[Rfam]
RNA sequence: AUAUAAGGAGCAAUAAACUCUUUCUUGUUCUAUCAAGAGGGCUUAUUGCUCCUU
Dot-bracket structure: ....(((((((((((....(.((((((......)))))).)..)))))))))))

Shown here is a 54-nucleotide sequence from Erythranthe lutea, a member of the family "Plastid-psbA-4 3UTR RNA". Rfam describes the family as follows. Plastid psbA-4 is a non-coding RNA (ncRNA) present in plastids. It was identified in inverted repeat sequences in the 3 prime untranslate region (3UTR) of photosystem II quinone-binding protein (psbA). The family's consensus secondary structure was predicted with LocARNA. The family is grouped with related families in Rfam's "Plastid-psbA 3UTR RNA clan". NCBI's taxonomy places the organism under Eukaryota, Embryophyta, eudicotyledons, lamiids, Erythranthe.